[Rfam]
Record summary:
ALIL pseudoknot: a 117-nucleotide RNA from Acetobacter orientalis.
Nucleotides: 117
Stems, first nucleotide, its partner, number of pairs: 016032005078117005089112002092109002095106002098103001
Number, partner (000 for none) and nucleotide at each position: 001000g002000g003000c004000u005000u006000a007000u008000u009000u010000u011000g012000c013000a014000c015000a016032g017031g018030c019029g020028g021000a022000g023000c024000u025000c026000g027000a028020c029019c030018g031017c032016c033000c034000g035000u036000u037000u038000c039000g040000c041000a042000a043000a044000u045000g046000a047000u048000c049000g050000c051000g052000u053000u054000u055000a056000u057000u058000g059000a060000a061000g062000c063000c064000u065000a066000c067000c068000g069000u070000g071000c072000c073000u074000a075000u076000u077000a078117c079116g080115g081114g082113g083000u084000c085000g086000a087000g088000c089112c090111a091000a092109u093108c094000u095106g096105u097000c098103g099000c100000g101000u102000u103098c104000u105096g106095c107000c108093g109092a110000u111090u112089g113082c114081c115080c116079c117078g
Rfam 15.1 lists 2,146 matches to the family in 1,098 species. It scores 108 bits against the family's covariance model. The literature on the family includes a 2008 paper in J Biol Chem by Mazauric et al., "Apical loop-internal loop RNA pseudoknots: a new type of stimulator of -1 translational frameshifting in bacteria". Its family is annotated with positive regulation of translational frameshifting in the Gene Ontology.